[Rfam]
RNA sequence: GGUUUCCAUUAAUGUAAAUCUAAUUAUCUGAAUUUAAGAUAAAAAGCAAUUUUCUGUUGGUAGCAAAUGAUUAUCUAUUAAAUGGAGAAAAUUUUAU
Numbered sequence: 001g002g003u004u005u006c007c008a009u010u011a012a013u014g015u016a017a018a019u020c021u022a023a024u025u026a027u028c029u030g031a032a033u034u035u036a037a038g039a040u041a042a043a044a045a046g047c048a049a050u051u052u053u054c055u056g057u058u059g060g061u062a063g064c065a066a067a068u069g070a071u072u073a074u075c076u077a078u079u080a081a082a083u084g085g086a087g088a089a090a091a092u093u094u095u096a097u
Stems, first nucleotide, its partner, number of pairs: 009023003052087004056078002059075005
Plastid-rps12 3UTR RNA: a 97-nucleotide RNA from Olea europaea. Rfam describes the family as follows. Plastid rpl20 is a non-coding RNA (ncRNA) recognised in plastids. The family's RNA type in Rfam is cis-regulatory element.